[Rfam]
RNA sequence: CUGCACUAGAUACUAACCUGACUGUCUGCUGCCCAGUAGUAUUUUAGUACUGGUGCACUUUCAUGGCCGUCGGGUCCAGAAUGGUGCUAUAAAAACAAACAACAAGCCCUGUGAUUUAAGCACUGAGAGGGAAGUCAUUACCUCAGCUGUUAUUACUCAGGGAUACACAA
Numbered sequence: 001c002u003g004c005a006c007u008a009g010a011u012a013c014u015a016a017c018c019u020g021a022c023u024g025u026c027u028g029c030u031g032c033c034c035a036g037u038a039g040u041a042u043u044u045u046a047g048u049a050c051u052g053g054u055g056c057a058c059u060u061u062c063a064u065g066g067c068c069g070u071c072g073g074g075u076c077c078a079g080a081a082u083g084g085u086g087c088u089a090u091a092a093a094a095a096c097a098a099a100c101a102a103c104a105a106g107c108c109c110u111g112u113g114a115u116u117u118a119a120g121c122a123c124u125g126a127g128a129g130g131g132a133a134g135u136c137a138u139u140a141c142c143u144c145a146g147c148u149g150u151u152a153u154u155a156c157u158c159a160g161g162g163a164u165a166c167a168c169a170a
Stems, first nucleotide, its partner, number of pairs: 003087006016075003020071003024067003028059001030057003033053001035051004040046001106164001108162001126139002129136002141161003145157001149156002

Rfam assigns this 170-nucleotide sequence from Silurus meridionalis to the family "Small Cajal body specific RNA 1".
Rfam classes the family as a small Cajal body RNA.
Rfam links the family to the GO terms nucleolus, Cajal body and RNA processing.
The literature on the family includes a 2002 paper in EMBO J by Darzacq et al., "Cajal body-specific small nuclear RNAs: a novel class of 2'-O-methylation and pseudouridylation guide RNAs".
The family has 29 seed sequences and 715 matches in Rfam 15.1.
scaRNAs are a specific class of small nuclear RNAs which localise to the Cajal bodies and guide the modification of RNA polymerase II transcribed spliceosomal RNAs U1, U2, U4, U5 and U12. ACA35 belong to the H/ACA box class of guide RNAs as it has the predicted hairpin-hinge-hairpin-tail structure, conserved H/ACA-box motifs and is found associated with GAR1. It is predicted to guide pseudouridylation of the U2 spliceosomal snRNA at residue U89.
NCBI's taxonomy places the organism under Eukaryota, Gnathostomata, Euteleostomi, Teleostei, Silurus.